[Rfam]
RNA sequence: UAAAAGGGCCUUUGCAGUCACUUGCACGUGGGCCUGUCACGGGCCUGCGCGGAAUCGCCAUCAAGAGAUUUCGGAGGCAUAAUCUUUGGACUCUUUGGCAGUUGGCGCCACUGUUCGCCGACGCCCUA
Numbered sequence: 001u002a003a004a005a006g007g008g009c010c011u012u013u014g015c016a017g018u019c020a021c022u023u024g025c026a027c028g029u030g031g032g033c034c035u036g037u038c039a040c041g042g043g044c045c046u047g048c049g050c051g052g053a054a055u056c057g058c059c060a061u062c063a064a065g066a067g068a069u070u071u072c073g074g075a076g077g078c079a080u081a082a083u084c085u086u087u088g089g090a091c092u093c094u095u096u097g098g099c100a101g102u103u104g105g106c107g108c109c110a111c112u113g114u115u116c117g118c119c120g121a122c123g124c125c126c127u128a
Stems, first nucleotide, its partner, number of pairs: 008078005013026005027049010050073007097125003101122007109113001